[Rfam]
RNA: Teg49 sRNA
RNA sequence: ACACAUUGAAUAUCGAAACAUUUAAUUGCGCUAAAUCGUUUCAUUAAAUAAAUUACCUUGUAUUGGCGAUUAAAUUAAGGUAAAUUAUAAAAAAUGCUGAUAUUUUUGACUAAACCAAAUGCUAACCCAGAAAUACAAUCACUGUGUCUAAUGAAUAAUUUGUUUUAUAAACACUUUUUUGUUUACUUCUCAUUUU
Numbered sequence: 001a002c003a004c005a006u007u008g009a010a011u012a013u014c015g016a017a018a019c020a021u022u023u024a025a026u027u028g029c030g031c032u033a034a035a036u037c038g039u040u041u042c043a044u045u046a047a048a049u050a051a052a053u054u055a056c057c058u059u060g061u062a063u064u065g066g067c068g069a070u071u072a073a074a075u076u077a078a079g080g081u082a083a084a085u086u087a088u089a090a091a092a093a094a095u096g097c098u099g100a101u102a103u104u105u106u107u108g109a110c111u112a113a114a115c116c117a118a119a120u121g122c123u124a125a126c127c128c129a130g131a132a133a134u135a136c137a138a139u140c141a142c143u144g145u146g147u148c149u150a151a152u153g154a155a156u157a158a159u160u161u162g163u164u165u166u167a168u169a170a171a172c173a174c175u176u177u178u179u180u181g182u183u184u185a186c187u188u189c190u191c192a193u194u195u196u
Stems, first nucleotide, its partner, number of pairs: 001147005007141003015042005020036005048088004053083008062075003098137002101135008168185006